[Rfam]
RNA: MIR845_2 microRNA precursor family
RNA sequence: AGAACUCACAUUAAUUAUCCUUGGGGCCAUGAGAUAAACAAAAACCCUAUAAAAAUAAGUUAGCAUACCCUAGAAUGGUUCCAGCACGAUUACUAACCUAUGACUCUAAUACCAGUUGAAAGGAAUGAUUA
Numbered sequence: 001a002g003a004a005c006u007c008a009c010a011u012u013a014a015u016u017a018u019c020c021u022u023g024g025g026g027c028c029a030u031g032a033g034a035u036a037a038a039c040a041a042a043a044a045c046c047c048u049a050u051a052a053a054a055a056u057a058a059g060u061u062a063g064c065a066u067a068c069c070c071u072a073g074a075a076u077g078g079u080u081c082c083a084g085c086a087c088g089a090u091u092a093c094u095a096a097c098c099u100a101u102g103a104c105u106c107u108a109a110u111a112c113c114a115g116u117u118g119a120a121a122g123g124a125a126u127g128a129u130u131a
Stems, first nucleotide, its partner, number of pairs: 011119006022108005028102004033097001048086001053080002056077002060073004